[Rfam]
RNA sequence: UGGUUUAGAACUCAGUUAAGUCGCUGUCGCAAUGGCGGCGGCAGAUAUGGGCUACGCCGGCAGCCCGUAUCGCAGGCGAUCCAUUCGCCACGCCCAACCGGGCGAAAUGCAACAAACGGGACAAC
Numbered sequence: 001u002g003g004u005u006u007a008g009a010a011c012u013c014a015g016u017u018a019a020g021u022c023g024c025u026g027u028c029g030c031a032a033u034g035g036c037g038g039c040g041g042c043a044g045a046u047a048u049g050g051g052c053u054a055c056g057c058c059g060g061c062a063g064c065c066c067g068u069a070u071c072g073c074a075g076g077c078g079a080u081c082c083a084u085u086c087g088c089c090a091c092g093c094c095c096a097a098c099c100g101g102g103c104g105a106a107a108u109g110c111a112a113c114a115a116a117c118g119g120g121a122c123a124a125c
Base pairs, nucleotide, nucleotide: 020042021041022040023039024038025037026036027035028034046069047068048067049066050065051064052063075089076088077087078086079085091104092103093102094101095100